[Rfam]
Shown here is a 104-nucleotide RNA sequence from Savagea serpentis, a member of the family "Purine riboswitch aptamer". Lineage of the source: Bacteria > Bacillota > Bacilli > Caryophanales > Savagea. The family is grouped with related families in Rfam's "Purine riboswitches".
RNA sequence: AUAAUUGUUGAAAGUGUCACUCAUAUAAUUCUCUAGAAUAUGGCUAGAGAAGUAUCUACCGACUUACCGUAAAUAAGUCGACUAUGAGUAGAAAAAGAAGUGCG
Numbered sequence: 001a002u003a004a005u006u007g008u009u010g011a012a013a014g015u016g017u018c019a020c021u022c023a024u025a026u027a028a029u030u031c032u033c034u035a036g037a038a039u040a041u042g043g044c045u046a047g048a049g050a051a052g053u054a055u056c057u058a059c060c061g062a063c064u065u066a067c068c069g070u071a072a073a074u075a076a077g078u079c080g081a082c083u084a085u086g087a088g089u090a091g092a093a094a095a096a097g098a099a100g101u102g103c104g
Base pairs, nucleotide, nucleotide: 019089020088021087022086023085024084025083029051030050031049033047034046035045036044060080061079062078063077064076065075066074